[Rfam]
RNA sequence: UGGCGUUGUCUCGUAGAGGUCCAGAUCUCUCCUGUUGGCAACUCGAAAUCUCUACGAGAUAACAGUU
Numbered sequence: 001u002g003g004c005g006u007u008g009u010c011u012c013g014u015a016g017a018g019g020u021c022c023a024g025a026u027c028u029c030u031c032c033u034g035u036u037g038g039c040a041a042c043u044c045g046a047a048a049u050c051u052c053u054a055c056g057a058g059a060u061a062a063c064a065g066u067u
Stems, first nucleotide, its partner, number of pairs: 005063016024044002031038002
This 67-nucleotide RNA sequence from Mardivirus gallidalpha2 belongs to the Rfam family "mir-M7 microRNA precursor family". On this family, see Morgan et al., J Virol 2008: "Sequence conservation and differential expression of Marek's disease virus microRNAs". Rfam links the family to the GO terms miRNA-mediated post-transcriptional gene silencing and RISC complex. Rfam 15.1 lists 8 matches to the family in 2 species.